[Rfam]
Rfam assigns this 100-nucleotide RNA from Erwinia tasmaniensis to the family "Gammaprotebacteria rimP leader". On this family, see Naville and Gautheret, Genome Biol 2010: "Premature terminator analysis sheds light on a hidden world of bacterial transcriptional attenuation".
RNA sequence: CGCGAUUCGCGGUUUACAGGGUCCAGUCACAAUAAGCCCCGAUAUUUCGGGGUUUUUUGUUAUCAGGAAGCAGCAUCACUGGGCUAUAGGCCCUUUUUUU
Numbered sequence: 001c002g003c004g005a006u007u008c009g010c011g012g013u014u015u016a017c018a019g020g021g022u023c024c025a026g027u028c029a030c031a032a033u034a035a036g037c038c039c040c041g042a043u044a045u046u047u048c049g050g051g052g053u054u055u056u057u058u059g060u061u062a063u064c065a066g067g068a069a070g071c072a073g074c075a076u077c078a079c080u081g082g083g084c085u086a087u088a089g090g091c092c093c094u095u096u097u098u099u100u
Stems, first nucleotide, its partner, number of pairs: 034055008081093004
Dot-bracket structure: .................................((((((((......)))))))).........................((((.....)))).......
Its family is annotated with regulation of gene expression in the Gene Ontology.